[Rfam]
RNA sequence: ACCGCCAUGGACGACGGUGGUUCCAAGCAGAAGCACGUUUUGCUGUUUGCAAAACGUGUUGUCAAACCUGUACACGGAUGUACAGGUUUGACGUGAC
Numbered sequence: 001a002c003c004g005c006c007a008u009g010g011a012c013g014a015c016g017g018u019g020g021u022u023c024c025a026a027g028c029a030g031a032a033g034c035a036c037g038u039u040u041u042g043c044u045g046u047u048u049g050c051a052a053a054a055c056g057u058g059u060u061g062u063c064a065a066a067c068c069u070g071u072a073c074a075c076g077g078a079u080g081u082a083c084a085g086g087u088u089u090g091a092c093g094u095g096a097c
Base pairs, nucleotide, nucleotide: 001018002017003016004015006013034058035057036056037055038054039053040052041051042050043049060093061092062091063090064089065088066087067086068085069084070083071082072081073080
Dot-bracket structure: ((((.(......).))))...............((((((((((.....)))))))))).((((((((((((((......))))))))))))))....